[Rfam]
RNA sequence: UUGCCCGAUGAUUAUAAAAAAAGACGCAUUAUUAAGAGGACUUAAUGCUGGAAUUCUUUAUCUUUACCUUCUUUUCUCUCUCUCCUGUACUACUUUUUCUUUCUUUCUUUGAAUGUCCAGCGUCCUAUGAGCGAAGAUUAUGAGAUAUGAGGGCAA
Numbered sequence: 001u002u003g004c005c006c007g008a009u010g011a012u013u014a015u016a017a018a019a020a021a022a023g024a025c026g027c028a029u030u031a032u033u034a035a036g037a038g039g040a041c042u043u044a045a046u047g048c049u050g051g052a053a054u055u056c057u058u059u060a061u062c063u064u065u066a067c068c069u070u071c072u073u074u075u076c077u078c079u080c081u082c083u084c085c086u087g088u089a090c091u092a093c094u095u096u097u098u099c100u101u102u103c104u105u106u107c108u109u110u111g112a113a114u115g116u117c118c119a120g121c122g123u124c125c126u127a128u129g130a131g132c133g134a135a136g137a138u139u140a141u142g143a144g145a146u147a148u149g150a151g152g153g154c155a156a
Stems, first nucleotide, its partner, number of pairs: 001156006037057004042052002

The record is a 156-nucleotide RNA from Muntiacus reevesi, which matches "Small nucleolar RNA SNORD97" in Rfam.
Taxonomically the source falls in Muntiacus (Eukaryota, Chordata, Vertebrata, Euteleostomi).
Rfam 15.1 lists 639 matches to the family in 614 species.
It scores 149 bits against the family's covariance model.
For this family Rfam cites "Identification of 13 novel human modification guide RNAs" (Vitali et al., Nucleic Acids Res, 2003).
Rfam classes the family as a C/D-box small nucleolar RNA.
Rfam links the family to the GO terms nucleolus and RNA processing.